A member of the RNA family "ZMP/ZTP riboswitch aptamer (pfl RNA motif)" from Comamonas denitrificans, 158 nucleotides long. It scores 44 bits against the family's covariance model. For this family Rfam cites "Recognition of the bacterial alarmone ZMP through long-distance association of two RNA subdomains" (Jones and Ferre-D'Amare, Nat Struct Mol Biol, 2015). NCBI's taxonomy places the organism under Bacteria, Betaproteobacteria, Burkholderiales, Comamonadaceae, Comamonas.
RNA sequence: UACAGAGUACGCGACUGGCGAUAGGCAAGGCGGGGCAAGCAUGCAACCCAGCUACGCUGAUGUGGAACAGUUUUGUGCCUUGGCGCACACCAACCACCGGGGAGCGUACCGCCUGAGCCACACUUCGGGUGUUUUAGCCGUUCGCCUGGGCAACCCUU
Numbered sequence: 001u002a003c004a005g006a007g008u009a010c011g012c013g014a015c016u017g018g019c020g021a022u023a024g025g026c027a028a029g030g031c032g033g034g035g036c037a038a039g040c041a042u043g044c045a046a047c048c049c050a051g052c053u054a055c056g057c058u059g060a061u062g063u064g065g066a067a068c069a070g071u072u073u074u075g076u077g078c079c080u081u082g083g084c085g086c087a088c089a090c091c092a093a094c095c096a097c098c099g100g101g102g103a104g105c106g107u108a109c110c111g112c113c114u115g116a117g118c119c120a121c122a123c124u125u126c127g128g129g130u131g132u133u134u135u136a137g138c139c140g141u142u143c144g145c146c147u148g149g150g151c152a153a154c155c156c157u158u
Stems, first nucleotide, its partner, number of pairs: 007109006015101002017146005062097004135153001137151003